[Rfam]
RNA: c-di-GMP-I riboswitch aptamer
RNA sequence: AAAAAAUAUCGGCAAACCAUUGGAAACAAUGGGACGCAAAACUAUAGGGCCUUUAAAAUGGCAGCCAGUUCCCGAG
Numbered sequence: 001a002a003a004a005a006a007u008a009u010c011g012g013c014a015a016a017c018c019a020u021u022g023g024a025a026a027c028a029a030u031g032g033g034a035c036g037c038a039a040a041a042c043u044a045u046a047g048g049g050c051c052u053u054u055a056a057a058a059u060g061g062c063a064g065c066c067a068g069u070u071c072c073c074g075a076g
Stems, first nucleotide, its partner, number of pairs: 012037002017032006040070004047066002049062003